[Rfam]
This 105-nucleotide RNA sequence from Aliiglaciecola lipolytica belongs to the Rfam family "t44 RNA". Rfam classes the family as a small RNA. It scores 79 bits against the family's covariance model.
RNA sequence: GCGAAAUUAACUAAAUAACACACAUACAUCGACACAUUUGUCGGGGUGUCUGUUUCGGGUUUGCCGCCUGAACGGAUCGAUAGAUGGGAUGUAUGGAGGCCUAAC
Dot-bracket structure: ......................((((((((....(((((((((....((((((((..............))))))))))))))))).))))))))..........